RNA: U11 spliceosomal RNA
Organism: Choanephora cucurbitarum
RNA sequence: AAAAAGGGCGCGCCAUGCUUGUUUGUUUCUAUCCUUUUUAAACUUGUUCAAAGAGGGAAAAAAAGGAUGUGGAAUGAGCAAGAAGAAUAUGGCAGGAGUCAUUCUUUUUUUGAUAAGUUACUCUUGCGGUAUGGCAAUCAAGACAUAUCGAGCGCAUAAUUUUUUGCUUUUGGGCAGUUCACUCUUGGCUUCGCUUAAGCCGGAACUGCCUU
Numbered sequence: 001a002a003a004a005a006g007g008g009c010g011c012g013c014c015a016u017g018c019u020u021g022u023u024u025g026u027u028u029c030u031a032u033c034c035u036u037u038u039u040a041a042a043c044u045u046g047u048u049c050a051a052a053g054a055g056g057g058a059a060a061a062a063a064a065g066g067a068u069g070u071g072g073a074a075u076g077a078g079c080a081a082g083a084a085g086a087a088u089a090u091g092g093c094a095g096g097a098g099u100c101a102u103u104c105u106u107u108u109u110u111u112g113a114u115a116a117g118u119u120a121c122u123c124u125u126g127c128g129g130u131a132u133g134g135c136a137a138u139c140a141a142g143a144c145a146u147a148u149c150g151a152g153c154g155c156a157u158a159a160u161u162u163u164u165u166g167c168u169u170u171u172g173g174g175c176a177g178u179u180c181a182c183u184c185u186u187g188g189c190u191u192c193g194c195u196u197a198a199g200c201c202g203g204a205a206c207u208g209c210c211u212u
Stems, first nucleotide, its partner, number of pairs: 008155004013092005093126007101118003127150007173210008